[Rfam]
A member of the RNA family "ALIL pseudoknot" from Sphingomonas tagetis, 117 nucleotides long. Rfam classes the family as a cis-regulatory element. The organism belongs to Sphingomonas, within Bacteria.
RNA sequence: CGCAUAUUUUGCGCAGGCGGAGCUCGACCGCCCGUUCCGGCGAUGAUCGCGUUCAUCGACGAUCACCGCGAUGCCUAUGGGGUCGAGCCGAUCUGCCGCGUCCUGCCGAUCGCCCCA
Numbered sequence: 001c002g003c004a005u006a007u008u009u010u011g012c013g014c015a016g017g018c019g020g021a022g023c024u025c026g027a028c029c030g031c032c033c034g035u036u037c038c039g040g041c042g043a044u045g046a047u048c049g050c051g052u053u054c055a056u057c058g059a060c061g062a063u064c065a066c067c068g069c070g071a072u073g074c075c076u077a078u079g080g081g082g083u084c085g086a087g088c089c090g091a092u093c094u095g096c097c098g099c100g101u102c103c104u105g106c107c108g109a110u111c112g113c114c115c116c117a
Stems, first nucleotide, its partner, number of pairs: 016032005078117005089112002092109002095106002098103001